Record summary
The record is a 253-nucleotide RNA from Desulfonema limicola, which matches "Group II catalytic intron D1-D4-6" in Rfam. A search with the family's covariance model found it, with a score of 110 bits. Rfam links the family to the GO term Group II intron splicing. On this family, see Bonen and Vogel, Trends Genet 2001: "The ins and outs of group II introns". Taxonomically the source falls in Desulfonema (Bacteria, Pseudomonadati, Desulfobacteria, Desulfococcaceae).
RNA sequence: UAAGUCCCGCCUGAUUAAAGUUUAGCCAACAGGUCAGUAGCGAAGUCCGAGGGCAAACCCGGUAACGGGAGUCCGAAGCCGGACGGAGUGAGGAUACAGGCCGUGUGAUUGAGCCCCGAAAAGGGUAUAGUCGUGGACAUUGGAUAAGCUCUUGAGUUUAAGAGCGAAAGCCGACGCCGUUCAGCGGUGCGGAAGGCAGCAGACCUUGAUGCGUUAUGGCGAGCAGCAGGGUUUCCACCGGGGUCAGAGAGCA
Numbered sequence: 001u002a003a004g005u006c007c008c009g010c011c012u013g014a015u016u017a018a019a020g021u022u023u024a025g026c027c028a029a030c031a032g033g034u035c036a037g038u039a040g041c042g043a044a045g046u047c048c049g050a051g052g053g054c055a056a057a058c059c060c061g062g063u064a065a066c067g068g069g070a071g072u073c074c075g076a077a078g079c080c081g082g083a084c085g086g087a088g089u090g091a092g093g094a095u096a097c098a099g100g101c102c103g104u105g106u107g108a109u110u111g112a113g114c115c116c117c118g119a120a121a122a123g124g125g126u127a128u129a130g131u132c133g134u135g136g137a138c139a140u141u142g143g144a145u146a147a148g149c150u151c152u153u154g155a156g157u158u159u160a161a162g163a164g165c166g167a168a169a170g171c172c173g174a175c176g177c178c179g180u181u182c183a184g185c186g187g188u189g190c191g192g193a194a195g196g197c198a199g200c201a202g203a204c205c206u207u208g209a210u211g212c213g214u215u216a217u218g219g220c221g222a223g224c225a226g227c228a229g230g231g232u233u234u235c236c237a238c239c240g241g242g243g244u245c246a247g248a249g250a251g252c253a
Base pairs, nucleotide, nucleotide: 012036013035014034015033016032020030021029022028023222025220026219038091040089041088045084046083047082049079051074052073053072054071058069059068060067061066110247111245113244114243115242116241117240118239133238134237135236136235137234170197171196172195175191176190177189202233203232204231205230206229207228208227210225211224212223